[Rfam]
RNA: COG3610-DE RNA
RNA sequence: UGCGAGUCGACAAAAAACGCGAGAUGCGUAUAUUUUGAAGAUAGGGGACAUCCACCUUAACUGGCAGACACGGGAAGUGUCGAUGUUGGGCAAGCUGAUGUGAACAGCGGUUGUCCACA
Numbered sequence: 001u002g003c004g005a006g007u008c009g010a011c012a013a014a015a016a017a018c019g020c021g022a023g024a025u026g027c028g029u030a031u032a033u034u035u036u037g038a039a040g041a042u043a044g045g046g047g048a049c050a051u052c053c054a055c056c057u058u059a060a061c062u063g064g065c066a067g068a069c070a071c072g073g074g075a076a077g078u079g080u081c082g083a084u085g086u087u088g089g090g091c092a093a094g095c096u097g098a099u100g101u102g103a104a105c106a107g108c109g110g111u112u113g114u115c116c117a118c119a
Stems, first nucleotide, its partner, number of pairs: 006042003009035002017029004047087006055064002067081005088116003094108003